[Rfam]
RNA sequence: GCAAAAGCUGUCUAGGGUUCCGUUGAUCCUGCAGAAGCUGAGACUCCGAUAGCCGGGUCGAGGCCUCGCGCAUCAAGCUGGUCCGAGAGACGGCGUAUGGGACGGGACGGCGGUCAGCCCAUAUAACACGGAGGGAUAAAAGCCUGGGAGAC
Number, nucleotide and partner (000 for none) at each position: 001g000002c000003a000004a000005a000006a000007g094008c093009u092010g091011u090012c089013u000014a000015g084016g083017g000018u000019u000020c081021c080022g078023u076024u075025g074026a073027u072028c000029c000030u000031g000032c000033a000034g000035a000036a000037g000038c000039u000040g000041a000042g000043a000044c000045u000046c000047c000048g000049a000050u000051a000052g000053c000054c000055g000056g000057g000058u000059c000060g000061a000062g000063g000064c000065c000066u000067c000068g000069c000070g000071c000072a027073u026074c025075a024076a023077g000078c022079u000080g021081g020082u000083c016084c015085g000086a000087g000088a000089g012090a011091c010092g009093g008094c007095g124096u123097a122098u121099g120100g119101g118102a000103c000104g000105g000106g000107a000108c000109g000110g000111c000112g000113g000114u000115c000116a000117g000118c101119c100120c099121a098122u097123a096124u095125a000126a000127c147128a000129c150130g000131g000132a000133g145134g144135g143136a000137u000138a000139a000140a000141a000142g000143c135144c134145u133146g000147g127148g000149a000150g129151a000152c000

Record summary: Shown here is a 152-nucleotide RNA sequence from Paenibacillus darwinianus, a member of the family "Guanidine-I riboswitch aptamer". Rfam's curators write: This family represents a conserved RNA structure found upstream of the ykkC and yxkD genes in Bacillus subtilis and related genes in other bacteria. The function of this family is unclear although it has been suggested that it may function to switch on efflux pumps and detoxification systems in response to harmful environmental molecules. The family has 100 seed sequences and 1,509 matches in Rfam 15.1.